The family of this 108-nucleotide sequence from Paenibacillus stellifer is "EGFOA RNA". The source organism's lineage runs through Bacteria, Bacillati, Bacillota, Bacilli and Paenibacillus. It scores 75 bits against the family's covariance model.
RNA sequence: UACUUUUUAGUAGCCCCGUCACGGUCGCCGUAAGGCGAGGGAGUCAUGACAGACUUAUAUUUAAUAUAAACGUGGUAAAGCCGUACCUGAGCACGUCAGAUGUCAUGU
Numbered sequence: 001u002a003c004u005u006u007u008u009a010g011u012a013g014c015c016c017c018g019u020c021a022c023g024g025u026c027g028c029c030g031u032a033a034g035g036c037g038a039g040g041g042a043g044u045c046a047u048g049a050c051a052g053a054c055u056u057a058u059a060u061u062u063a064a065u066a067u068a069a070a071c072g073u074g075g076u077a078a079a080g081c082c083g084u085a086c087c088u089g090a091g092c093a094c095g096u097c098a099g100a101u102g103u104c105a106u107g108u
Stems, first nucleotide, its partner, number of pairs: 006091005018086002021084004025038005045107007055069004070096005